About this RNA
DUF3800-I RNA: a 121-nucleotide RNA. From the family's description: Actinobacteria, Firmicutes, Fusobacteria, Proteobacteria (1 example), Tenericutes (2 examples). By type it is a small RNA.
RNA sequence: GUAAUUACCGGAGGGCAUUAGUCCUCGACUGGUCUACAAGGGAUAUCGAUUCUAGUAAUUAAGCGUACUGUAAGUACGUCGAUCUCUUGGAAAGUGGGGAAACCCACUUUUUUUAUGGGAA
Numbered sequence: 001g002u003a004a005u006u007a008c009c010g011g012a013g014g015g016c017a018u019u020a021g022u023c024c025u026c027g028a029c030u031g032g033u034c035u036a037c038a039a040g041g042g043a044u045a046u047c048g049a050u051u052c053u054a055g056u057a058a059u060u061a062a063g064c065g066u067a068c069u070g071u072a073a074g075u076a077c078g079u080c081g082a083u084c085u086c087u088u089g090g091a092a093a094g095u096g097g098g099g100a101a102a103c104c105c106a107c108u109u110u111u112u113u114u115a116u117g118g119g120a121a
Stems, first nucleotide, its partner, number of pairs: 008032003011026006037089006045083004049059003063079006090111009